RNA sequence: GUGCCCUUUUAAGGUUGACGCAGUGCCUUAGGAGGCUAACACCGAAGGGUAAAGACAGUCUCCAUAAAAUCCAGAGAUUUUACAAACUCCUCUUUGGAACUCCUCUUUGGAUCCUGGCUGGAGUCACAGCU
Numbered sequence: 001g002u003g004c005c006c007u008u009u010u011a012a013g014g015u016u017g018a019c020g021c022a023g024u025g026c027c028u029u030a031g032g033a034g035g036c037u038a039a040c041a042c043c044g045a046a047g048g049g050u051a052a053a054g055a056c057a058g059u060c061u062c063c064a065u066a067a068a069a070u071c072c073a074g075a076g077a078u079u080u081u082a083c084a085a086a087c088u089c090c091u092c093u094u095u096g097g098a099a100c101u102c103c104u105c106u107u108u109g110g111a112u113c114c115u116g117g118c119u120g121g122a123g124u125c126a127c128a129g130c131u
Base pairs, nucleotide, nucleotide: 002051003050004049005048006047007046008045009044014040015039016038017037019035021032058125060123061122062121063120064119071110072109073108074107075106076105077104
The record is a 131-nucleotide RNA sequence from Muntiacus reevesi, which matches "Small nucleolar RNA SNORA26" in Rfam. For this family Rfam cites "RNomics: an experimental approach that identifies 201 candidates for novel, small, non-messenger RNAs in mouse" (Huttenhofer et al., EMBO J, 2001). The base pairs follow the family's consensus structure, which was predicted with RNAalifold. NCBI's taxonomy places the organism under Eukaryota, Opisthokonta, Deuterostomia, Artiodactyla, Muntiacus. Rfam describes the family as follows. The snoRNA HBI-6 belong to the H/ACA family of snoRNAs, guiding the pseudouridylation of position U4522 if the 28S rRNA. HBI-6 is the human orthologue of mouse MBI-6 snoRNA. Its Rfam clan is "SNORA27 clan". By type it is an H/ACA-box small nucleolar RNA.